[Rfam]
RNA: msiK RNA
RNA sequence: CGACGCCACCCACACUACGGAUCGUUCGGCACGUACCUGCCGAUGGAGGGACAGAAAACU
Number, nucleotide and partner (000 for none) at each position: 001c000002g000003a000004c000005g000006c000007c000008a000009c049010c048011c000012a000013c045014a044015c000016u000017a000018c000019g000020g000021a000022u000023c000024g000025u000026u043027c042028g041029g040030c039031a038032c000033g000034u000035a000036c000037c000038u031039g030040c029041c028042g027043a026044u014045g013046g000047a000048g010049g009050g000051a000052c000053a000054g000055a000056a000057a000058a000059c000060u000